[Rfam]
RNA sequence: GGCGAUAAAGGAUUGCGUGCAAUAGAUGCAGCGGACCCGGGGGCAGUACCCGGCGGCUCCACCAUCAACCGCCCUCGCCGGCGGAUGUUGACGGGGCCGAACCAGGAUCGACGUGUGUUGAAAAGCGCUGUCUUUCGCUCGGAAUGGGACCACCGCAACGGCCCAUUACACAAGUGCCAACGAUAACGAAGCACUCGCGAUUGCGGCGUAA
Number, nucleotide and partner (000 for none) at each position: 001g139002g138003c137004g136005a135006u000007a000008a000009a000010g000011g000012a000013u000014u000015g128016c127017g126018u125019g000020c000021a000022a000023u000024a000025g000026a000027u117028g116029c115030a000031g114032c113033g112034g000035a000036c000037c053038c052039g051040g050041g049042g000043g000044c000045a000046g000047u000048a000049c041050c040051c039052g038053g037054c099055g098056g097057c096058u095059c094060c093061a000062c000063c000064a000065u000066c000067a000068a000069c000070c000071g000072c000073c000074c000075u000076c000077g000078c000079c000080g000081g000082c000083g000084g000085a000086u000087g000088u000089u000090g000091a000092c000093g060094g059095g058096g057097c056098c055099g054100a000101a000102c000103c000104a000105g000106g000107a000108u000109c000110g000111a000112c033113g032114u031115g029116u028117g027118u000119u000120g000121a000122a000123a000124a000125g018126c017127g016128c015129u000130g000131u000132c000133u000134u000135u005136c004137g003138c002139u001140c155141g154142g153143a000144a000145u000146g000147g000148g000149a000150c000151c000152a000153c142154c141155g140156c000157a000158a000159c000160g000161g000162c000163c000164c000165a000166u000167u000168a000169c000170a000171c000172a000173a000174g000175u000176g000177c000178c000179a000180a000181c000182g000183a000184u000185a000186a000187c000188g000189a000190a000191g000192c000193a000194c000195u000196c000197g000198c000199g000200a000201u000202u000203g000204c000205g000206g000207c000208g000209u000210a000211a000
Shown here is a 211-nucleotide RNA sequence from Sphingomonas guangdongensis, a member of the family "permuted transfer-messenger RNA". The base pairs follow the family's consensus structure, which is taken from published work. Its family is annotated with RNA catabolic process in the Gene Ontology. A reference for the family is Williams and Bartel (1996), "Phylogenetic analysis of tmRNA secondary structure", RNA. NCBI's taxonomy places the organism under Bacteria, Pseudomonadati, Pseudomonadota, Sphingomonadales, Sphingomonas. The match comes from Rfam's covariance-model search (124 bits). From the family's description: Bacterial tmRNA, also known as 10Sa RNA or SsrA, is named for its dual tRNA and mRNA-like properties. Its role is to liberate the mRNA from a stalled ribosome. To accomplish this part of the tmRNA is used as a reading frame that ends in a translation stop signal. The broken mRNA is replaced in the ribosome by the tmRNA and translation of the tmRNA leads to addition of a proteolysis tag to the incomplete protein enabling recognition by a protease.